RNA sequence: GCUCGUGAUGAUUUUCGUAUGGAAUCUCGUUCGGCUGAAUAUUCCUGUUGAGAGAUCGGAAUGCCUGAAGCUG
Numbered sequence: 001g002c003u004c005g006u007g008a009u010g011a012u013u014u015u016c017g018u019a020u021g022g023a024a025u026c027u028c029g030u031u032c033g034g035c036u037g038a039a040u041a042u043u044c045c046u047g048u049u050g051a052g053a054g055a056u057c058g059g060a061a062u063g064c065c066u067g068a069a070g071c072u073g
Stems, first nucleotide, its partner, number of pairs: 025053005032047003

Shown here is a 73-nucleotide RNA sequence from Acipenser ruthenus, a member of the family "Small nucleolar RNA SNORD30". Pairs were carried over by alignment from the consensus structure. Its family is annotated with RNA processing and nucleolus in the Gene Ontology. It scores 46 bits against the family's covariance model. The family is grouped with related families in Rfam's "SNORD30 clan". Rfam classes the family as a C/D-box small nucleolar RNA. The literature on the family includes a 1996 paper in Nature by Tycowski et al., "A mammalian gene with introns instead of exons generating stable RNA products".